A member of the RNA family "Small nucleolar RNA R30/Z108" from Nicotiana attenuata, 98 nucleotides long. snoR30 is a C/D box small nucleolar RNA which acts as a methylation guide for 18S ribosomal RNA in plants. Its Rfam clan is "SNORD100 clan". It scores 85 bits against the family's covariance model. NCBI's taxonomy places the organism under Eukaryota, Viridiplantae, Magnoliopsida, asterids, Nicotiana. Gene Ontology terms of the family: nucleolus and RNA processing. The family's consensus secondary structure was predicted with PFOLD. On this family, see Marker et al., Curr Biol 2002: "Experimental RNomics. Identification of 140 Candidates for Small Non-Messenger RNAs in the Plant Arabidopsis thaliana".

RNA sequence: UAGAUUUGCUAUGAGGAUUCCAAGCUCCCUCUUCUGAUUAAAGUUGAGGAAAAUUGCUGGCAGAAUCGAACCAAUAAAAACUAGCCACCACUGAGCAA
Numbered sequence: 001u002a003g004a005u006u007u008g009c010u011a012u013g014a015g016g017a018u019u020c021c022a023a024g025c026u027c028c029c030u031c032u033u034c035u036g037a038u039u040a041a042a043g044u045u046g047a048g049g050a051a052a053a054u055u056g057c058u059g060g061c062a063g064a065a066u067c068g069a070a071c072c073a074a075u076a077a078a079a080a081c082u083a084g085c086c087a088c089c090a091c092u093g094a095g096c097a098a
Stems, first nucleotide, its partner, number of pairs: 006098004